The record is a 150-nucleotide sequence from Coffea canephora, which matches "small nucleolar RNA snoR135" in Rfam. Its family is annotated with nucleolus and RNA processing in the Gene Ontology.

[Rfam]
RNA sequence: AAAGCAGGGAUUGUGUGUAUCGACUCUGUGCUAAUUUGUCAUUGCACUUUGCUCGAAAGAGUUCUCUGCAAUAUCAAUUUUUUUGGGAAGAUGGGCAGUUGUAUUUCAUUAUCUUGUUGAAAACCUUCAACAAUCAUCUUCCUGACAUUA
Numbered sequence: 001a002a003a004g005c006a007g008g009g010a011u012u013g014u015g016u017g018u019a020u021c022g023a024c025u026c027u028g029u030g031c032u033a034a035u036u037u038g039u040c041a042u043u044g045c046a047c048u049u050u051g052c053u054c055g056a057a058a059g060a061g062u063u064c065u066c067u068g069c070a071a072u073a074u075c076a077a078u079u080u081u082u083u084u085g086g087g088a089a090g091a092u093g094g095g096c097a098g099u100u101g102u103a104u105u106u107c108a109u110u111a112u113c114u115u116g117u118u119g120a121a122a123a124c125c126u127u128c129a130a131c132a133a134u135c136a137u138c139u140u141c142c143u144g145a146c147a148u149u150a
Stems, first nucleotide, its partner, number of pairs: 004069007015047005084144011098131004

On this family, see Chen and Wu, Nucleic Acids Res 2009: "Mining small RNA sequencing data: a new approach to identify small nucleolar RNAs in Arabidopsis". Rfam classes the family as an H/ACA-box small nucleolar RNA. Pairs were carried over by alignment from the consensus structure, which was predicted with RNAalifold.